[Rfam]
The family of this 145-nucleotide sequence from Paenibacillus silvestris is "Ribosomal protein L20 leader". Rfam classes the family as a cis-regulatory leader. The family's consensus secondary structure was predicted with CMfinder.
Nucleotides: 145
Base pairs, nucleotide, nucleotide: 011026012025013024014023015022016021028054029053030052034049035048036047037046038045111132112131113130114129115128116127117126118125119124
Number, partner (000 for none) and nucleotide at each position: 001000a002000a003000g004000u005000a006000a007000a008000a009000g010000c011026a012025g013024a014023g015022g016021c017000g018000c019000c020000c021016g022015c023014u024013u025012c026011u027000c028054a029053c030052c031000u032000g033000a034049c035048c036047g037046a038045c039000a040000a041000g042000a043000a044000u045038g046037u047036u048035g049034g050000c051000u052030g053029g054028u055000u056000u057000g058000a059000a060000u061000g062000a063000a064000u065000c066000a067000u068000c069000a070000u071000g072000a073000a074000u075000g076000c077000u078000c079000a080000a081000u082000a083000g084000g085000u086000u087000g088000c089000u090000u091000a092000a093000a094000c095000c096000u097000g098000u099000u100000a101000u102000u103000g104000a105000u106000g107000a108000a109000g110000a111132u112131g113130u114129g115128g116127g117126c118125c119124u120000u121000u122000g123000c124119g125118g126117g127116c128115c129114c130113g131112c132111a133000u134000c135000u136000u137000u138000u139000u140000u141000a142000u143000a144000u145000u
This family is a putative r-protein leader autoregulatory structure found in B. subtilis and other low-GC Gram-positive bacteria. It is located in the 5' untranslated regions of mRNAs encoding initiation factor 3 followed by ribosomal proteins L35 and L20 (infC-rpmI-rplT). A Rho-independent transcription terminator structure that is probably involved in regulation is included at the 3' end.